RNA sequence: AAUGGUCCUCGGUAGUGGUUUCCGCGCACGACAUCCUUACUAAGGAAACAAGUCGCGUGAACUUCGAUCGAAGAUUCAUU
Numbered sequence: 001a002a003u004g005g006u007c008c009u010c011g012g013u014a015g016u017g018g019u020u021u022c023c024g025c026g027c028a029c030g031a032c033a034u035c036c037u038u039a040c041u042a043a044g045g046a047a048a049c050a051a052g053u054c055g056c057g058u059g060a061a062c063u064u065c066g067a068u069c070g071a072a073g074a075u076u077c078a079u080u
Stems, first nucleotide, its partner, number of pairs: 001080004005075003009071005017063005023057004027052001

Shown here is an 80-nucleotide RNA, a member of the family "Actino-pnp RNA".
The sequence is in the family's curated seed alignment.
The base pairs follow the family's consensus structure, which is taken from published work.